[Rfam]
RNA: Plastid-ccsA-ndhD-1 3UTR RNA
Organism: Cynara cardunculus
RNA sequence: CAACUGGCGAGAACCAUGUGAAUCAAGGAGUGUAGUGAUUCACGUGGUUCUCGUAAA
Numbered sequence: 001c002a003a004c005u006g007g008c009g010a011g012a013a014c015c016a017u018g019u020g021a022a023u024c025a026a027g028g029a030g031u032g033u034a035g036u037g038a039u040u041c042a043c044g045u046g047g048u049u050c051u052c053g054u055a056a057a
Stems, first nucleotide, its partner, number of pairs: 007054019